[Rfam]
Nucleotides: 044
Stems, first nucleotide, its partner, number of pairs: 003044003007040004015034008
Number, partner (000 for none) and nucleotide at each position: 001000u002000c003044g004043g005042c006000c007040c008039c009038g010037g011000u012000u013000c014000a015034c016033g017032g018031c019030g020029c021028g022027c023000g024000c025000c026000c027022g028021c029020g030019c031018g032017c033016c034015g035000a036000c037010c038009c039008g040007g041000u042005g043004c044003c

The record is a 44-nucleotide RNA from Streptomyces sp. PT12, which matches "L31-Actinobacteria ribosomal protein leader" in Rfam.
It is annotated as a cis-regulatory leader.
The match comes from Rfam's covariance-model search (47 bits).